[Rfam]
RNA sequence: GGUCUGUUUUGAAGGUAAUGAAUUAUCUCACUUGGUUGUUAACAGUCAGUUGCAGAUCGAACUCCUUGUUCUACUGCUUCCCCCUUUCUCGCUACUACACUUGACUAAUCUUAA
Number, nucleotide and partner (000 for none) at each position: 001g110002g109003u108004c000005u000006g105007u104008u103009u000010u000011g102012a101013a000014g000015g098016u097017a093018a000019u091020g090021a089022a000023u000024u000025a000026u000027c000028u000029c000030a000031c000032u000033u000034g000035g000036u000037u000038g000039u000040u000041a000042a000043c000044a000045g075046u000047c000048a072049g071050u000051u000052g000053c000054a000055g000056a000057u000058c000059g000060a000061a000062c000063u000064c000065c000066u000067u000068g000069u000070u000071c049072u048073a000074c000075u045076g000077c000078u000079u000080c000081c000082c000083c000084c000085u000086u000087u000088c000089u021090c020091g019092c000093u017094a000095c000096u000097a016098c015099a000100c000101u012102u011103g008104a007105c006106u000107a000108a003109u002110c001111u000112u000113a000114a000

The record is a 114-nucleotide sequence from Pan troglodytes, which matches "Y RNA" in Rfam. It scores 38 bits against the family's covariance model. The base pairs follow the family's consensus structure, which is taken from published work. The family has 104 seed sequences and 26,986 matches in Rfam 15.1. The literature on the family includes a 2000 paper in Nucleic Acids Res by Teunissen et al., "Conserved features of Y RNAs: a comparison of experimentally derived secondary structures".